Rfam assigns this 74-nucleotide sequence from Alligator mississippiensis to the family "Mammalian CPEB3 ribozyme".
RNA sequence: UGGCAAGUUCAAGGUCAUAGCAGAAGUGCUCAUGAUGCAGCCUGUCAGAUUCCAAUGAAUCUGGAAAUUCUGCU
Number, nucleotide and partner (000 for none) at each position: 001u000002g000003g000004c000005a000006a000007g000008u000009u000010c000011a000012a000013g042014g041015u040016c000017a000018u000019a074020g073021c072022a071023g070024a069025a068026g038027u037028g036029c000030u000031c000032a000033u000034g000035a000036u028037g027038c026039a000040g015041c014042c013043u000044g000045u000046c063047a062048g061049a060050u059051u058052c057053c000054a000055a000056u000057g052058a051059a050060u049061c048062u047063g046064g000065a000066a000067a000068u025069u024070c023071u022072g021073c020074u019
A search with the family's covariance model found it, with a score of 48 bits. The source organism's lineage runs through Eukaryota, Eumetazoa, Sarcopterygii, Amniota and Alligator.